Shown here is an 87-nucleotide sequence from Triticum urartu, a member of the family "MIR1120/MIR1122 microRNA precursor family". The organism belongs to Triticum, within Eukaryota. A reference for the family is Yao et al. (2007), "Cloning and characterization of microRNAs from wheat (Triticum aestivum L.)", Genome Biol.
RNA sequence: AUACUCCCUCCGUUUCAUAAUAUAAGAACGUUUCUGACACUAGUGUAGUGUUAAAAACGUUCUUAUAUUUUGGAACAGAGGGAGUAC
Numbered sequence: 001a002u003a004c005u006c007c008c009u010c011c012g013u014u015u016c017a018u019a020a021u022a023u024a025a026g027a028a029c030g031u032u033u034c035u036g037a038c039a040c041u042a043g044u045g046u047a048g049u050g051u052u053a054a055a056a057a058c059g060u061u062c063u064u065a066u067a068u069u070u071u072g073g074a075a076c077a078g079a080g081g082g083a084g085u086a087c
Base pairs, nucleotide, nucleotide: 003085004084005083007081008080009079010078013075014074015073016072017071019069020068021067022066023065024064025063026062027061028060029059030058031057032056033055035053036052037051038050039049040048041047
Gene Ontology terms of the family: miRNA-mediated post-transcriptional gene silencing and RISC complex.